Guanidine-I riboswitch aptamer: a 107-nucleotide RNA from Methylocaldum marinum. The match comes from Rfam's covariance-model search (92 bits). About the family: This family represents a conserved RNA structure found upstream of the ykkC and yxkD genes in Bacillus subtilis and related genes in other bacteria. The base pairs follow the family's consensus structure.
[Rfam]
RNA sequence: ACAAAUGGCGACUAGGGUUCCGGCCCCUCCGCUCGGGGGCGUCUGGUCCGAGAGUUUCCGGCCCCGUAGCUCGCGGGGUUACACGGCGGGAUAAAAGCCCGGGAGGU
Numbered sequence: 001a002c003a004a005a006u007g008g009c010g011a012c013u014a015g016g017g018u019u020c021c022g023g024c025c026c027c028u029c030c031g032c033u034c035g036g037g038g039g040c041g042u043c044u045g046g047u048c049c050g051a052g053a054g055u056u057u058c059c060g061g062c063c064c065c066g067u068a069g070c071u072c073g074c075g076g077g078g079u080u081a082c083a084c085g086g087c088g089g090g091a092u093a094a095a096a097g098c099c100c101g102g103g104a105g106g107u
Stems, first nucleotide, its partner, number of pairs: 007059002010056003015049002020046002022043001023040006060080008082102001084105001088100003